[Rfam]
RNA sequence: UUUUUAUGGUCUUGAACAAUGGCCAAAACUGUAGUGAACCUAUGGUUAUAUAUCACCAAAUUGCGGGAAAGCCCUAAAGCAAUCUUAACCAAGUAAGUAUGGUAACAUAACUUAUGGCACAGGUAAUGACUCGUGGUAUGGUAAAAUCAAGAUUUAUUAUUCAAUGGGUAAUCCGCAGCCAAGUGCCAAGUAUAAAUUAUUGGGUAUGCAGUUCAUCGACUAGACGGUGAUUGGUAUUAUUAGUGUUAAUAAUGCUUAAGAUAUAGUCAGCCCCCACCUGAAAAGGUGCA
Numbered sequence: 001u002u003u004u005u006a007u008g009g010u011c012u013u014g015a016a017c018a019a020u021g022g023c024c025a026a027a028a029c030u031g032u033a034g035u036g037a038a039c040c041u042a043u044g045g046u047u048a049u050a051u052a053u054c055a056c057c058a059a060a061u062u063g064c065g066g067g068a069a070a071g072c073c074c075u076a077a078a079g080c081a082a083u084c085u086u087a088a089c090c091a092a093g094u095a096a097g098u099a100u101g102g103u104a105a106c107a108u109a110a111c112u113u114a115u116g117g118c119a120c121a122g123g124u125a126a127u128g129a130c131u132c133g134u135g136g137u138a139u140g141g142u143a144a145a146a147u148c149a150a151g152a153u154u155u156a157u158u159a160u161u162c163a164a165u166g167g168g169u170a171a172u173c174c175g176c177a178g179c180c181a182a183g184u185g186c187c188a189a190g191u192a193u194a195a196a197u198u199a200u201u202g203g204g205u206a207u208g209c210a211g212u213u214c215a216u217c218g219a220c221u222a223g224a225c226g227g228u229g230a231u232u233g234g235u236a237u238u239a240u241u242a243g244u245g246u247u248a249a250u251a252a253u254g255c256u257u258a259a260g261a262u263a264u265a266g267u268c269a270g271c272c273c274c275c276a277c278c279u280g281a282a283a284a285g286g287u288g289c290a
Base pairs, nucleotide, nucleotide: 001021003019004018031040052231053230054229055228057226062177063176064175065174066173067172072168073167074166178212179211183207184206185205186204216269218268219267220266221265222264234255235254236253237252238251239250240249241248242247275288276287277286278285279284